[Rfam]
RNA sequence: UACAAAUGAUGUUUUCUCACGAUGGUCUUCCUAGCCUCCUGGUUUUGACGAUAACGCCUUAUGGCAUUGCUGAUGUAGUCUG
Numbered sequence: 001u002a003c004a005a006a007u008g009a010u011g012u013u014u015u016c017u018c019a020c021g022a023u024g025g026u027c028u029u030c031c032u033a034g035c036c037u038c039c040u041g042g043u044u045u046u047g048a049c050g051a052u053a054a055c056g057c058c059u060u061a062u063g064g065c066a067u068u069g070c071u072g073a074u075g076u077a078g079u080c081u082g
Base pairs, nucleotide, nucleotide: 001077002076003075004074
A member of the RNA family "Small nucleolar RNA SNORD35" from Muraenolepis orangiensis, 82 nucleotides long. Rfam links the family to the GO terms nucleolus and RNA processing. The base pairs follow the family's consensus structure, which was predicted with PFOLD. Rfam 15.1 lists 1,842 matches to the family in 634 species. For this family Rfam cites "Intron-encoded, antisense small nucleolar RNAs: the characterization of nine novel species points to their direct role as guides for the 2'-O-ribose methylation of rRNAs" (Nicoloso et al., J Mol Biol, 1996). U35 is a C/D box snoRNA located in intron 6 of ribosomal protein L13A and intron 3 of ribosomal protein S11 in humans and at homologous positions in mouse and chicken ribosomal protein genes. U35 guides the methylation of 2'-O-ribose sites in 28S rRNA. A search with the family's covariance model found it, with a score of 57 bits. The family's RNA type in Rfam is C/D-box small nucleolar RNA.